Annotation
The family of this 35-nucleotide RNA from Neotoma lepida is "Iron response element I". Gene Ontology term of the family: response to iron ion.
RNA sequence: CAGCUGCCUUCUUCAACAGUGUUUGAAAGGCAUUC
Number, nucleotide and partner (000 for none) at each position: 001c000002a034003g033004c000005u032006g031007c030008c029009u000010u028011c000012u027013u026014c025015a024016a023017c021018a000019g000020u000021g017022u000023u016024u015025g014026a013027a012028a010029g008030g007031c006032a005033u003034u002035c000
Taxonomically the source falls in Neotoma (Eukaryota, Chordata, Sarcopterygii, Glires).